Shown here is an 83-nucleotide RNA sequence from Bordetella genomosp. 9, a member of the family "Proteo-phage-1 RNA". The match comes from Rfam's covariance-model search (62 bits).
RNA sequence: CGCGUGCCAGCCGCGACGGGAAACCGGGUAGCUGGAUGGGGAUUAGUCGGUGAGUGCCCCAGCAUGGAGAAACCCCGACAGGC
Numbered sequence: 001c002g003c004g005u006g007c008c009a010g011c012c013g014c015g016a017c018g019g020g021a022a023a024c025c026g027g028g029u030a031g032c033u034g035g036a037u038g039g040g041g042a043u044u045a046g047u048c049g050g051u052g053a054g055u056g057c058c059c060c061a062g063c064a065u066g067g068a069g070a071a072a073c074c075c076c077g078a079c080a081g082g083c
Stems, first nucleotide, its partner, number of pairs: 001015004007035005017026003037061005046079005

NCBI's taxonomy places the organism under Bacteria, Pseudomonadati, Betaproteobacteria, Burkholderiales, Bordetella.